Shown here is a 75-nucleotide sequence from Penelope pileata, a member of the family "Small nucleolar RNA SNORD24". Gene Ontology terms of the family: RNA processing and nucleolus. A search with the family's covariance model found it, with a score of 74 bits. Taxonomically the source falls in Penelope (Eukaryota, Sauria, Archosauria, Aves).
[Rfam]
RNA sequence: UGCAGAUGACGUGAAAAAAUAUUUGCUGUCUGACUGGUGGUGCUGACCCACACAACCACCAAGAUCGCUGAUGCA
Numbered sequence: 001u002g003c004a005g006a007u008g009a010c011g012u013g014a015a016a017a018a019a020u021a022u023u024u025g026c027u028g029u030c031u032g033a034c035u036g037g038u039g040g041u042g043c044u045g046a047c048c049c050a051c052a053c054a055a056c057c058a059c060c061a062a063g064a065u066c067g068c069u070g071a072u073g074c075a
Stems, first nucleotide, its partner, number of pairs: 001075004